RNA: Streptomyces sRNA 4677
Organism: Streptomyces mexicanus
RNA sequence: CGGUCCGGCGCGUGCUCAACGCAUUGAAAGGAUGUGGAGGGAAGGACCGGCCACCCGACCCGGCCCACCAGGCCCCCGGCAGCCCGCGUCACCCGGACGAGUGGCAGCGCUCAACUCGGCUGGUGUUCCGCCCGAUUCGCUGGCAUAUGCUCGCCGCGACCACACCGCAGACAUGCGACGGCCCCCGGCCGGGACUGGCAUCCCGAUCGAGGGCCUGACCACCGAGGAAGUCAGGAGCUUCCCG
Numbered sequence: 001c002g003g004u005c006c007g008g009c010g011c012g013u014g015c016u017c018a019a020c021g022c023a024u025u026g027a028a029a030g031g032a033u034g035u036g037g038a039g040g041g042a043a044g045g046a047c048c049g050g051c052c053a054c055c056c057g058a059c060c061c062g063g064c065c066c067a068c069c070a071g072g073c074c075c076c077c078g079g080c081a082g083c084c085c086g087c088g089u090c091a092c093c094c095g096g097a098c099g100a101g102u103g104g105c106a107g108c109g110c111u112c113a114a115c116u117c118g119g120c121u122g123g124u125g126u127u128c129c130g131c132c133c134g135a136u137u138c139g140c141u142g143g144c145a146u147a148u149g150c151u152c153g154c155c156g157c158g159a160c161c162a163c164a165c166c167g168c169a170g171a172c173a174u175g176c177g178a179c180g181g182c183c184c185c186c187g188g189c190c191g192g193g194a195c196u197g198g199c200a201u202c203c204c205g206a207u208c209g210a211g212g213g214c215c216u217g218a219c220c221a222c223c224g225a226g227g228a229a230g231u232c233a234g235g236a237g238c239u240u241c242c243c244g
Stems, first nucleotide, its partner, number of pairs: 002223003012075001014073003089104004094099001119155001121153003180215005186209002191204004226242005